RNA sequence: CCGCGUUAAAGGUAAAAUCAUCGAAAGAUGAUGACACAAAGCUAUGGGUCUAAAGCCAUCCAUCGGAGGGCCAUGAUCGCCAGGCCGCCAUA
Number, nucleotide and partner (000 for none) at each position: 001c000002c000003g000004c000005g000006u000007u000008a000009a000010a000011g000012g037013u036014a000015a000016a000017a032018u031019c030020a029021u028022c027023g000024a000025a000026a000027g022028a021029u020030g019031a018032u017033g000034a000035c000036a013037c012038a000039a000040a000041g085042c084043u083044a000045u082046g081047g080048g077049u076050c075051u000052a000053a000054a000055g071056c070057c069058a000059u000060c000061c000062a000063u000064c000065g000066g000067a000068g000069g057070g056071c055072c000073a000074u000075g050076a049077u048078c000079g000080c047081c046082a045083g043084g042085c041086c000087g000088c000089c000090a000091u000092a000
Rfam assigns this 92-nucleotide RNA from Paenibacillus stellifer to the family "c-di-GMP-I riboswitch aptamer".
The match comes from Rfam's covariance-model search (71 bits).
Lineage of the source: Bacteria > Bacillati > Bacilli > Caryophanales > Paenibacillus.